[Rfam]
Nucleotides: 103
Stems, first nucleotide, its partner, number of pairs: 002102007013043005021032003026080004044072004049068002051064004076095001081092003
Number, partner (000 for none) and nucleotide at each position: 001000a002102c003101c004100u005099u006098a007097u008096c009000a010000a011000g012000a013043g014042c015041g016040g017039c018000g019000g020000a021032g022031g023030u024000a025000a026080c027079a028078g029077g030023a031022c032021c033000u034000g035000u036000g037000a038000a039017g040016c041015c042014g043013c044072a045071g046070c047069a048000a049068c050067c051064c052063g053062a054061c055000c056000u057000u058000u059000g060000a061054g062053u063052c064051g065000a066000a067050g068049g069047u070046g071045c072044u073000a074000a075000u076095u077029c078028c079027u080026g081092c082091g083090g084000u085000u086000u087000u088000a089000u090083c091082c092081g093000g094000a095076a096008g097007a098006u099005g100004a101003g102002g103000a
Rfam assigns this 103-nucleotide sequence from Ruminococcus flavefaciens to the family "SAM riboswitch aptamer (S box leader)".
NCBI's taxonomy places the organism under Bacteria, Bacillati, Bacillota, Clostridia, Ruminococcus flavefaciens.
The family's consensus secondary structure is taken from published work.